FMN riboswitch aptamer (RFN element): a 174-nucleotide RNA sequence from Pristimantibacillus lignocellulolyticus.
The match comes from Rfam's covariance-model search (100 bits).
RNA sequence: GCUUACCUUCGGGGGUCGGGUGAAAUUCCCAACCGGCGGUGAUCACACUAUGAAGUGAGUUUCACUUCAUAGUGUGUAAGUCCGCGACCCAAUCUAAUUAUGGCGACAUAAUGGAUUGGCUGAUCUAGUGUGAAUCUAGAACCGACAGUAAAGUCUGGAUGGGAGAAGGAGAAG
Numbered sequence: 001g002c003u004u005a006c007c008u009u010c011g012g013g014g015g016u017c018g019g020g021u022g023a024a025a026u027u028c029c030c031a032a033c034c035g036g037c038g039g040u041g042a043u044c045a046c047a048c049u050a051u052g053a054a055g056u057g058a059g060u061u062u063c064a065c066u067u068c069a070u071a072g073u074g075u076g077u078a079a080g081u082c083c084g085c086g087a088c089c090c091a092a093u094c095u096a097a098u099u100a101u102g103g104c105g106a107c108a109u110a111a112u113g114g115a116u117u118g119g120c121u122g123a124u125c126u127a128g129u130g131u132g133a134a135u136c137u138a139g140a141a142c143c144g145a146c147a148g149u150a151a152a153g154u155c156u157g158g159a160u161g162g163g164a165g166a167a168g169g170a171g172a173a174g
Base pairs, nucleotide, nucleotide: 003172004171006169007168008167009166010165018030019029020028032154033153034144035143036085037084038083039082089119090118091117092116093115094114095113124140125139126138127137128136146157147156148155